Rfam assigns this 67-nucleotide sequence from Cnephaeus nilssonii to the family "mir-9256 microRNA precursor family". The base pairs follow the family's consensus structure, which was predicted with RNAalifold.

RNA sequence: AUAUAUACUGAGUGGCCAGAUUAUUAUGCGUUCAGAGAGCACAAUAAUCUGGCCACUCAGUAUAUUU
Dot-bracket structure: ...((((((((((((((.(((((((.((...........)).))))))).))))))))))))))...